[Rfam]
RNA sequence: UAGAUUAACUAGGGGAGUCCAAUGAGUUGGGCUGAGAAACAAGAACUUAGAAGAUUGUUGACCCUUUGGACCUGAUCUGGCUCAUACCAGCGUGGGGAAGUUUAAGAGUGAGUUA
Numbered sequence: 001u002a003g004a005u006u007a008a009c010u011a012g013g014g015g016a017g018u019c020c021a022a023u024g025a026g027u028u029g030g031g032c033u034g035a036g037a038a039a040c041a042a043g044a045a046c047u048u049a050g051a052a053g054a055u056u057g058u059u060g061a062c063c064c065u066u067u068g069g070a071c072c073u074g075a076u077c078u079g080g081c082u083c084a085u086a087c088c089a090g091c092g093u094g095g096g097g098a099a100g101u102u103u104a105a106g107a108g109u110g111a112g113u114u115a
Stems, first nucleotide, its partner, number of pairs: 007102004011065004016059001017032005039058004071096004077090004

The family of this 115-nucleotide RNA from Halalkalibacter wakoensis is "TPP riboswitch aptamer (THI element)". The organism belongs to Halalkalibacter wakoensis, within Bacteria. It scores 73 bits against the family's covariance model.